[Rfam]
RNA: mir-183 microRNA precursor family
RNA sequence: UUCUGUGUAUGGCACUGGUAGAAUUCACUGUGAAAACACUCGAUCAGUGAAUUACAAAGGGCCAUAAACGGAG
Numbered sequence: 001u002u003c004u005g006u007g008u009a010u011g012g013c014a015c016u017g018g019u020a021g022a023a024u025u026c027a028c029u030g031u032g033a034a035a036a037c038a039c040u041c042g043a044u045c046a047g048u049g050a051a052u053u054a055c056a057a058a059g060g061g062c063c064a065u066a067a068a069c070g071g072a073g
Stems, first nucleotide, its partner, number of pairs: 003071004008066006016056001018055001022053009